[Rfam]
RNA sequence: CACUGGUGCAUUGUAGUUGCAUUGCAUGUAUUUUUAAUAGUGCAGUGUUUCUUCAGUGCAAUCAGUG
Number, nucleotide and partner (000 for none) at each position: 001c067002a066003c065004u064005g000006g063007u060008g059009c058010a057011u056012u055013g054014u000015a052016g051017u000018u000019g048020c000021a046022u045023u044024g043025c042026a041027u040028g000029u000030a000031u000032u000033u000034u000035u000036a000037a000038u000039a000040g027041u026042g025043c024044a023045g022046u021047g000048u019049u000050u000051c016052u015053u000054c013055a012056g011057u010058g009059c008060a007061a000062u000063c006064a004065g003066u002067g001
RNA: mir-33 microRNA precursor family